The family of this 71-nucleotide sequence from Nicotiana tabacum is "MIR6151 microRNA precursor family". The family's consensus secondary structure was predicted with RNAalifold. Rfam links the family to the GO terms miRNA-mediated post-transcriptional gene silencing and RISC complex.
[Rfam]
RNA sequence: GAUUGUUGGAUGAGUGUGAGGCGUUGGAUUGAUUUCACUCAAUCUGAGCCUCACAUUUAUCAAGGGCUCGU
Numbered sequence: 001g002a003u004u005g006u007u008g009g010a011u012g013a014g015u016g017u018g019a020g021g022c023g024u025u026g027g028a029u030u031g032a033u034u035u036c037a038c039u040c041a042a043u044c045u046g047a048g049c050c051u052c053a054c055a056u057u058u059a060u061c062a063a064g065g066g067c068u069c070g071u
Stems, first nucleotide, its partner, number of pairs: 004066001006064002009061010020050003024047009